[Rfam]
RNA sequence: CGGCCUGCCGAGGGGAGCCCCGACAGGGGGCUGAGAGGCUGCCGGGCGUGCCAGCGCAGUGACCCUUUGAACCUGAUCCGGAUCAUGCCGGCGCAGGGACGGGCCUUGCCGUUCCC
Numbered sequence: 001c002g003g004c005c006u007g008c009c010g011a012g013g014g015g016a017g018c019c020c021c022g023a024c025a026g027g028g029g030g031c032u033g034a035g036a037g038g039c040u041g042c043c044g045g046g047c048g049u050g051c052c053a054g055c056g057c058a059g060u061g062a063c064c065c066u067u068u069g070a071a072c073c074u075g076a077u078c079c080g081g082a083u084c085a086u087g088c089c090g091g092c093g094c095a096g097g098g099a100c101g102g103g104c105c106u107u108g109c110c111g112u113u114c115c116c
Base pairs, nucleotide, nucleotide: 008102009101010100011066012065013064014063016060017031018030019029020028021027039059040058041057042056072097073096074095075094078091079090080089081088
Dot-bracket structure: .......(((((((.((((((.....))))).......((((.............)))))..)))).....((((..((((......))))..))))..)))..............